[Rfam]
RNA sequence: GUCGAAUCUAUUGACCGUCGAGCCCGUGCAUUACCGUGCGCGGGGGAGGGCGGCGAAAAGAGGAAGCU
Dot-bracket structure: ..........(((.(((((...(((((((((....)))))))))....))))))))............
Notes
A member of the RNA family "ilvH RNA" from Hydrogenophaga borbori, 68 nucleotides long. Rfam classes the family as a cis-regulatory element. The base pairs follow the family's consensus structure, which is taken from published work. NCBI's taxonomy places the organism under Bacteria, Pseudomonadati, Pseudomonadota, Betaproteobacteria, Hydrogenophaga.